[Rfam]
RNA sequence: UGGCCGUGAUGACAAGAAUCAUUUCUCGAUCCUGACUAAAGAUAGGACCUUUGAGAUUUUUGUAUGAUUUUUAAUUAUAUUCAUGUCUCUUUGUGAUGAGCUUUUGUGCGUGUCUGAGCCGU
Numbered sequence: 001u002g003g004c005c006g007u008g009a010u011g012a013c014a015a016g017a018a019u020c021a022u023u024u025c026u027c028g029a030u031c032c033u034g035a036c037u038a039a040a041g042a043u044a045g046g047a048c049c050u051u052u053g054a055g056a057u058u059u060u061u062g063u064a065u066g067a068u069u070u071u072u073a074a075u076u077a078u079a080u081u082c083a084u085g086u087c088u089c090u091u092u093g094u095g096a097u098g099a100g101c102u103u104u105u106g107u108g109c110g111u112g113u114c115u116g117a118g119c120c121g122u
Stems, first nucleotide, its partner, number of pairs: 001121004
This 122-nucleotide RNA from Amborella trichopoda belongs to the Rfam family "small nucleolar RNA snoR126". Its family is annotated with nucleolus and RNA processing in the Gene Ontology. It scores 46 bits against the family's covariance model. The family's consensus secondary structure was predicted with RNAalifold.